The family of this 169-nucleotide sequence from Alkalitalea saponilacus is "Group II catalytic intron D1-D4-7".
The pairing is the family consensus, mapped onto this sequence.
Group II introns are found in rRNA, tRNA and mRNA of organelles in fungi, plants and protists, and also in mRNA in bacteria.
A search with the family's covariance model found it, with a score of 58 bits.
The literature on the family includes a 2001 paper in Trends Genet by Bonen and Vogel, "The ins and outs of group II introns".
Gene Ontology term of the family: Group II intron splicing.
[Rfam]
RNA sequence: CCUAUUGUUCCGUCAAUAGUACCUUACCGGGACACCGGAUGUAUGGUGAAGCCAUUAUCGGGUGAAGCUCCCGGGACAAUGUUCCUAAUCAUGACACGUGUGUCAAUAUGAGGGUAUGAAAUUCGUGAGAAAAGUAAUGCCUCCGAUGCUUCCUAAGUUGGUUGAAGGG
Numbered sequence: 001c002c003u004a005u006u007g008u009u010c011c012g013u014c015a016a017u018a019g020u021a022c023c024u025u026a027c028c029g030g031g032a033c034a035c036c037g038g039a040u041g042u043a044u045g046g047u048g049a050a051g052c053c054a055u056u057a058u059c060g061g062g063u064g065a066a067g068c069u070c071c072c073g074g075g076a077c078a079a080u081g082u083u084c085c086u087a088a089u090c091a092u093g094a095c096a097c098g099u100g101u102g103u104c105a106a107u108a109u110g111a112g113g114g115u116a117u118g119a120a121a122u123u124c125g126u127g128a129g130a131a132a133a134g135u136a137a138u139g140c141c142u143c144c145g146a147u148g149c150u151u152c153c154u155a156a157g158u159u160g161g162u163u164g165a166a167g168g169g
Stems, first nucleotide, its partner, number of pairs: 002019006028073005033064004038059004044054002089111004114140004123130002143161005